[Rfam]
RNA: Makes More Granules Regulator RNA (mmgR)
Organism: Novosphingobium sp. FSW06-99
RNA sequence: GGAAACUGCCUUUCAGGCAUCCUCUCCCAAACUUUACAGAGCCGCUUUCGAGCGGCUCUUUUUUUGCCCGGGC
Numbered sequence: 001g002g003a004a005a006c007u008g009c010c011u012u013u014c015a016g017g018c019a020u021c022c023u024c025u026c027c028c029a030a031a032c033u034u035u036a037c038a039g040a041g042c043c044g045c046u047u048u049c050g051a052g053c054g055g056c057u058c059u060u061u062u063u064u065u066g067c068c069c070g071g072g073c
Base pairs, nucleotide, nucleotide: 008018009017010016011015039058040057041056042055043054044053045052046051